[Rfam]
RNA: Small Cajal body-specific RNA 7
Organism: Podilymbus podiceps
RNA sequence: UGGAAGUGAUGAAAUAGAGAUAAUUGGAUGUCUCUCUGAAUGGAGUGUGUGUGAUAAAUGGAAUUUAAACCAAGUCAGGCUGGGGGUGGGGUAUGGGGAAUGUGUGUGUGCACGUGUGUAUAGAAAAGGCUUUCAGUGGGGGCACUGAUAGUGCAGUGCUGAUUCCGGAGUGCAUCUGAGGCAUGUUGUUAGGUUUUGGGUGCCAUUAUGCAACAUUGCCGAUGAUUAAAGCCCAAAACAAGCCCACCAAGAGAAGCCUAGGCAUCCUAAAUCUCUAACAGGUUCAUUAAUGAAAGUGAUCCUGUGAUCUGAUCUGA
Numbered sequence: 001u002g003g004a005a006g007u008g009a010u011g012a013a014a015u016a017g018a019g020a021u022a023a024u025u026g027g028a029u030g031u032c033u034c035u036c037u038g039a040a041u042g043g044a045g046u047g048u049g050u051g052u053g054a055u056a057a058a059u060g061g062a063a064u065u066u067a068a069a070c071c072a073a074g075u076c077a078g079g080c081u082g083g084g085g086g087u088g089g090g091g092u093a094u095g096g097g098g099a100a101u102g103u104g105u106g107u108g109u110g111c112a113c114g115u116g117u118g119u120a121u122a123g124a125a126a127a128g129g130c131u132u133u134c135a136g137u138g139g140g141g142g143c144a145c146u147g148a149u150a151g152u153g154c155a156g157u158g159c160u161g162a163u164u165c166c167g168g169a170g171u172g173c174a175u176c177u178g179a180g181g182c183a184u185g186u187u188g189u190u191a192g193g194u195u196u197u198g199g200g201u202g203c204c205a206u207u208a209u210g211c212a213a214c215a216u217u218g219c220c221g222a223u224g225a226u227u228a229a230a231g232c233c234c235a236a237a238a239c240a241a242g243c244c245c246a247c248c249a250a251g252a253g254a255a256g257c258c259u260a261g262g263c264a265u266c267c268u269a270a271a272u273c274u275c276u277a278a279c280a281g282g283u284u285c286a287u288u289a290a291u292g293a294a295a296g297u298g299a300u301c302c303u304g305u306g307a308u309c310u311g312a313u314c315u316g317a
Stems, first nucleotide, its partner, number of pairs: 001316004184215006190205001192203001195200001